[Rfam]
RNA sequence: GUCACGGAGGGUUUGAUCCUGGCUCAGGACGAACGCUGGCGGCGUGCCUAACACAUGCAAGUCGAACGCGAGUGUCUUUUUUCGUAAGAAAGGUGACACUUGAGUGGCGAACGGGUGAGUAACACGUGAGUAACUCACCUUCCGGUGGGGGAUAACUGUCCGAAAGGGUGGCUAAUACCCCAUAUGCUCCCUGACCGCCGGGUCAGUGAGAAAAGUGGGCUUCGUAAGAAGCUCACACCAGAAGAGAGGCUCGCGCCCCAUCAGCUGGUUGGCGAGGUAAUGGCUCACCAAGGCAAUGACGGGUAGCUGGUCUGAGAGGAUGGUCAGCCACACUGGGACUGAGACACGGCCCAGACUCCUACGGGAGGCAGCAGUGAGGAAUUUUGGGCAAUGGGCGAAAGCCUGACCCAGCGACGCCGCGUGGAGGAUGAAGGCCUUCGGGUCGUAAACUCCUGUUCUGGGGGAAGAAAACGGGGUGCGUGAAUAAUUCAUCCCGCUGACGGUACCCCAGGAGAAAGCUCCGGCUAAUUACGUGCCAGCAGCCGCGGUAAUACGUAAGGAGCAAGCGUUGUCCGGAUUUACUG
Numbered sequence: 001g002u003c004a005c006g007g008a009g010g011g012u013u014u015g016a017u018c019c020u021g022g023c024u025c026a027g028g029a030c031g032a033a034c035g036c037u038g039g040c041g042g043c044g045u046g047c048c049u050a051a052c053a054c055a056u057g058c059a060a061g062u063c064g065a066a067c068g069c070g071a072g073u074g075u076c077u078u079u080u081u082u083c084g085u086a087a088g089a090a091a092g093g094u095g096a097c098a099c100u101u102g103a104g105u106g107g108c109g110a111a112c113g114g115g116u117g118a119g120u121a122a123c124a125c126g127u128g129a130g131u132a133a134c135u136c137a138c139c140u141u142c143c144g145g146u147g148g149g150g151g152a153u154a155a156c157u158g159u160c161c162g163a164a165a166g167g168g169u170g171g172c173u174a175a176u177a178c179c180c181c182a183u184a185u186g187c188u189c190c191c192u193g194a195c196c197g198c199c200g201g202g203u204c205a206g207u208g209a210g211a212a213a214a215g216u217g218g219g220c221u222u223c224g225u226a227a228g229a230a231g232c233u234c235a236c237a238c239c240a241g242a243a244g245a246g247a248g249g250c251u252c253g254c255g256c257c258c259c260a261u262c263a264g265c266u267g268g269u270u271g272g273c274g275a276g277g278u279a280a281u282g283g284c285u286c287a288c289c290a291a292g293g294c295a296a297u298g299a300c301g302g303g304u305a306g307c308u309g310g311u312c313u314g315a316g317a318g319g320a321u322g323g324u325c326a327g328c329c330a331c332a333c334u335g336g337g338a339c340u341g342a343g344a345c346a347c348g349g350c351c352c353a354g355a356c357u358c359c360u361a362c363g364g365g366a367g368g369c370a371g372c373a374g375u376g377a378g379g380a381a382u383u384u385u386g387g388g389c390a391a392u393g394g395g396c397g398a399a400a401g402c403c404u405g406a407c408c409c410a411g412c413g414a415c416g417c418c419g420c421g422u423g424g425a426g427g428a429u430g431a432a433g434g435c436c437u438u439c440g441g442g443u444c445g446u447a448a449a450c451u452c453c454u455g456u457u458c459u460g461g462g463g464g465a466a467g468a469a470a471a472c473g474g475g476g477u478g479c480g481u482g483a484a485u486a487a488u489u490c491a492u493c494c495c496g497c498u499g500a501c502g503g504u505a506c507c508c509c510a511g512g513a514g515a516a517a518g519c520u521c522c523g524g525c526u527a528a529u530u531a532c533g534u535g536c537c538a539g540c541a542g543c544c545g546c547g548g549u550a551a552u553a554c555g556u557a558a559g560g561a562g563c564a565a566g567c568g569u570u571g572u573c574c575g576g577a578u579u580u581a582c583u584g
Stems, first nucleotide, its partner, number of pairs: 009025005027574004032570006039420006045413002047378001052376003056373003061108003066105002069102002076093005115331003125255007134248002139244004144239002147181004156171006187210003191206006215236008257303003264294003269291004274286003306328004310321004333354005356367004384410001386409003392405005423453004433444004457515001458511006467501001473495006518563005529558005539546002
The family of this 584-nucleotide part of an RNA from Atribacter laminatus is "Bacterial small subunit ribosomal RNA".
The source organism's lineage runs through Bacteria, Pseudomonadati, Atribacterota, Atribacteria and Atribacter.
Its family is annotated with ribosome and structural constituent of ribosome in the Gene Ontology.
It scores 1565 bits against the family's covariance model.